Notes: The record is a 99-nucleotide RNA sequence from Dellaglioa algida, which matches "THF (Tetrahydrofolate) riboswitch aptamer" in Rfam. The base pairs follow the family's consensus structure, which is taken from published work. Rfam's curators write: Tetrahydrofolate (THF) riboswitch was first reported for Ames et al. as an RNA motif in 5' untranslated (5'-UTR)regions of folate transport and biosynthesis genes in Firmicutes genomes. Taxonomically the source falls in Dellaglioa algida (Bacteria, Bacillati, Bacilli, Dellaglioa).

[Rfam]
RNA sequence: UUCGGGGUAGAGAGUACAGCGUUAAGUGCCAAAAGGACGGAAUGUGUCUUUUGGACGAAGGCUAGCGAUAGCUGCGGUUGUAUUCUCGCAUUCGCCGCA
Numbered sequence: 001u002u003c004g005g006g007g008u009a010g011a012g013a014g015u016a017c018a019g020c021g022u023u024a025a026g027u028g029c030c031a032a033a034a035g036g037a038c039g040g041a042a043u044g045u046g047u048c049u050u051u052u053g054g055a056c057g058a059a060g061g062c063u064a065g066c067g068a069u070a071g072c073u074g075c076g077g078u079u080g081u082a083u084u085c086u087c088g089c090a091u092u093c094g095c096c097g098c099a
Stems, first nucleotide, its partner, number of pairs: 001099001003097003010087010020076003026056002029054008040093005060073004